Rfam assigns this 78-nucleotide RNA sequence from Mus spicilegus to the family "Small nucleolar RNA SNORD115". Rfam 15.1 lists 3,387 matches to the family in 131 species. The literature on the family includes a 2000 paper in Proc Natl Acad Sci U S A by Cavaille et al., "Identification of brain-specific and imprinted small nucleolar RNA genes exhibiting an unusual genomic organization". It is annotated as a C/D-box small nucleolar RNA. Its family is annotated with nucleolus and RNA processing in the Gene Ontology. The source organism's lineage runs through Eukaryota, Opisthokonta, Chordata, Theria and Mus.

RNA sequence: GGGUCAAUGAUGACAACCCAAGUCAUGACGAAUGGUGAUGACAUAAAACUCAUGCUCAAUAGGAUUACGCUGAGGCCC
Numbered sequence: 001g002g003g004u005c006a007a008u009g010a011u012g013a014c015a016a017c018c019c020a021a022g023u024c025a026u027g028a029c030g031a032a033u034g035g036u037g038a039u040g041a042c043a044u045a046a047a048a049c050u051c052a053u054g055c056u057c058a059a060u061a062g063g064a065u066u067a068c069g070c071u072g073a074g075g076c077c078c
Stems, first nucleotide, its partner, number of pairs: 001078004005072002008069002
Dot-bracket structure: ((((((.((..........................................................)).))..))))